[Rfam]
RNA sequence: UCUGGGGAGGGGGUCCCUCAGCCUGGAUUGCAAGAGGGUGCAGGCCACGUCGAGGGACCCUACUGGUGCACA
Numbered sequence: 001u002c003u004g005g006g007g008a009g010g011g012g013g014u015c016c017c018u019c020a021g022c023c024u025g026g027a028u029u030g031c032a033a034g035a036g037g038g039u040g041c042a043g044g045c046c047a048c049g050u051c052g053a054g055g056g057a058c059c060c061u062a063c064u065g066g067u068g069c070a071c072a
Stems, first nucleotide, its partner, number of pairs: 003070002006067001010061010021050002025046002028043005
Dot-bracket structure: ..((.(...((((((((((.((..((.(((((......))))).))..)).)))))))))).....).))..
Shown here is a 72-nucleotide sequence from Myotis davidii, a member of the family "mir-9193 microRNA precursor family".
Gene Ontology terms of the family: miRNA-mediated post-transcriptional gene silencing and RISC complex.
It scores 60 bits against the family's covariance model.
Pairs were carried over by alignment from the consensus structure, which was predicted with RNAalifold.
Taxonomically the source falls in Myotis (Eukaryota, Chordata, Craniata, Chiroptera).